RNA sequence: UGAAAAUCCCGUACGGUAGCCAAAAAUGAGCCAUGCUUGCACGAGCGAACUCUUGGAUAUCGAACGGGCUAGACCGUAUGAGUAAGUAGGGCGAUGGCCCGGAUUACGAAUGCGGUCGGCAGCUGCGGGAGCGCCAUAGGCGCGAAACAGCUGGCUCUCA
Numbered sequence: 001u002g003a004a005a006a007u008c009c010c011g012u013a014c015g016g017u018a019g020c021c022a023a024a025a026a027u028g029a030g031c032c033a034u035g036c037u038u039g040c041a042c043g044a045g046c047g048a049a050c051u052c053u054u055g056g057a058u059a060u061c062g063a064a065c066g067g068g069c070u071a072g073a074c075c076g077u078a079u080g081a082g083u084a085a086g087u088a089g090g091g092c093g094a095u096g097g098c099c100c101g102g103a104u105u106a107c108g109a110a111u112g113c114g115g116u117c118g119g120c121a122g123c124u125g126c127g128g129g130a131g132c133g134c135c136a137u138a139g140g141c142g143c144g145a146a147a148c149a150g151c152u153g154g155c156u157c158u159c160a
Stems, first nucleotide, its partner, number of pairs: 001160003005156001008068004015061004020056004025051001027049001030046001032043001034041002072117008082107004089100004120153006131143004
Dot-bracket structure: (((.(..((((...((((.((((.(.(..(.(.((....)).)..)..).).)))).))))...))))...((((((((..((((...((((....))))...))))..))))))))..((((((.....((((.....))))....))))))..).)))
The family of this 160-nucleotide RNA sequence from Ruminococcus sp. AM42-11 is "Clostridiales-1 RNA". It is annotated as a small RNA.